Background:
This 106-nucleotide RNA sequence from Camelus dromedarius belongs to the Rfam family "Small nucleolar RNA SNORD90". Gene Ontology terms of the family: RNA processing and nucleolus. Rfam 15.1 lists 545 matches to the family in 524 species. The family's RNA type in Rfam is C/D-box small nucleolar RNA. The base pairs follow the family's consensus structure, which was predicted with RNAalifold. NCBI's taxonomy places the organism under Eukaryota, Dipnotetrapodomorpha, Eutheria, Boreoeutheria, Camelus.
RNA sequence: AACCUUGAUUUUAGUCUAAUGAUGAAUUUCAUAGGGCAGAUUCUGGGAUGAAAAUUUAAUUCAUCACUGAUAUUCCUACUAUUGGCACCACGGGAGCCUCUAGCGU
Numbered sequence: 001a002a003c004c005u006u007g008a009u010u011u012u013a014g015u016c017u018a019a020u021g022a023u024g025a026a027u028u029u030c031a032u033a034g035g036g037c038a039g040a041u042u043c044u045g046g047g048a049u050g051a052a053a054a055u056u057u058a059a060u061u062c063a064u065c066a067c068u069g070a071u072a073u074u075c076c077u078a079c080u081a082u083u084g085g086c087a088c089c090a091c092g093g094g095a096g097c098c099u100c101u102a103g104c105g106u
Stems, first nucleotide, its partner, number of pairs: 013101002015095003027087001029085002031082002033077004039071001042070002045067001047065006